RNA sequence: CGGUGCCUUCGGGGUCGGGUGAAAGUCCCAACCGGCGGUGAUAAAGCAAGAAGCAGCUUUUCAGUCCGUGACCCGUAUCGGUUUUUCCUUUACGGUGGAUCCGGUGCAAUUCCGGAGCCGACAGUGACAGUCUGGAUGGGAGAAGGACAGC
Numbered sequence: 001c002g003g004u005g006c007c008u009u010c011g012g013g014g015u016c017g018g019g020u021g022a023a024a025g026u027c028c029c030a031a032c033c034g035g036c037g038g039u040g041a042u043a044a045a046g047c048a049a050g051a052a053g054c055a056g057c058u059u060u061u062c063a064g065u066c067c068g069u070g071a072c073c074c075g076u077a078u079c080g081g082u083u084u085u086u087c088c089u090u091u092a093c094g095g096u097g098g099a100u101c102c103g104g105u106g107c108a109a110u111u112c113c114g115g116a117g118c119c120g121a122c123a124g125u126g127a128c129a130g131u132c133u134g135g136a137u138g139g140g141a142g143a144a145g146g147a148c149a150g151c
Stems, first nucleotide, its partner, number of pairs: 006146005017029003031131002033120002035069004064118002073095002100116005122134003
RNA: FMN riboswitch aptamer (RFN element)